[Rfam]
Source information: This 83-nucleotide sequence from Medicago truncatula belongs to the Rfam family "MIR2617 microRNA precursor family". Gene Ontology terms of the family: RISC complex and miRNA-mediated post-transcriptional gene silencing. Rfam 15.1 lists 1,174 matches to the family in 2 species.

RNA sequence: CUGCAAUGUAGCAUACCUGUUUGGUAAAAUACUCUGAUGAUUAUUCGUUAUUUAAUUACUUUUGGGUAACAGGGUGUUACACA
Numbered sequence: 001c002u003g004c005a006a007u008g009u010a011g012c013a014u015a016c017c018u019g020u021u022u023g024g025u026a027a028a029a030u031a032c033u034c035u036g037a038u039g040a041u042u043a044u045u046c047g048u049u050a051u052u053u054a055a056u057u058a059c060u061u062u063u064g065g066g067u068a069a070c071a072g073g074g075u076g077u078u079a080c081a082c083a
Stems, first nucleotide, its partner, number of pairs: 007081008016073006

The base pairs follow the family's consensus structure, which was predicted with RNAalifold.